[Rfam]
RNA sequence: UGAGUAAGUCAUUCAAUCGCAUGUGCAAACAUGAGGAAAGUCCGUGCUCCAUAGAGCAAGGAUGCCGGAUAACGUCCGGUGGAGGCGACUCUAAGGCUAGUGCAACAGAAAUAUACCGCCACAAUGUGGUAAGGGUGGAAAGGUAAGGUAAGAGCUUACCAGCAACUUGGAGACAAGUUGGCUCUGUAAACCCCAUCCGGAGCAAGACCAAAAAGGAUCAAAAGGUGGCUGCUCGUCACCUCCAAGAGGUAGGUCGCUGGAGGUAUUUGGCAACAAAUAUCCUAGAUAGAUGAUUGAUAAAACAGAACACGGCUUAUAGACUUGCUCAUACA
Numbered sequence: 001u002g003a004g005u006a007a008g009u010c011a012u013u014c015a016a017u018c019g020c021a022u023g024u025g026c027a028a029a030c031a032u033g034a035g036g037a038a039a040g041u042c043c044g045u046g047c048u049c050c051a052u053a054g055a056g057c058a059a060g061g062a063u064g065c066c067g068g069a070u071a072a073c074g075u076c077c078g079g080u081g082g083a084g085g086c087g088a089c090u091c092u093a094a095g096g097c098u099a100g101u102g103c104a105a106c107a108g109a110a111a112u113a114u115a116c117c118g119c120c121a122c123a124a125u126g127u128g129g130u131a132a133g134g135g136u137g138g139a140a141a142g143g144u145a146a147g148g149u150a151a152g153a154g155c156u157u158a159c160c161a162g163c164a165a166c167u168u169g170g171a172g173a174c175a176a177g178u179u180g181g182c183u184c185u186g187u188a189a190a191c192c193c194c195a196u197c198c199g200g201a202g203c204a205a206g207a208c209c210a211a212a213a214a215g216g217a218u219c220a221a222a223a224g225g226u227g228g229c230u231g232c233u234c235g236u237c238a239c240c241u242c243c244a245a246g247a248g249g250u251a252g253g254u255c256g257c258u259g260g261a262g263g264u265a266u267u268u269g270g271c272a273a274c275a276a277a278u279a280u281c282c283u284a285g286a287u288a289g290a291u292g293a294u295u296g297a298u299a300a301a302a303c304a305g306a307a308c309a310c311g312g313c314u315u316a317u318a319g320a321c322u323u324g325c326u327c328a329u330a331c332a
Base pairs, nucleotide, nucleotide: 001328002327003326004325005324006323007322008321009320010319011317013297014296015295016294017293018292020033021032022031023030024029038315039314040313042312043311044310045309046308047202048201049200050199056233060198061197062196063195064194065079066078067077068076069075080094081092082091083090084089095193096192100191101190102187103186104185116134117133118130119129120128121127122126142160143159144158145157146156147155162182163180164179165178166177167176168175169174206255207254208253209252216242217241225239226238227237228236229235262281263280264279265278266277267276268275269274
RNA: Bacterial RNase P class A
Organism: Urinicoccus massiliensis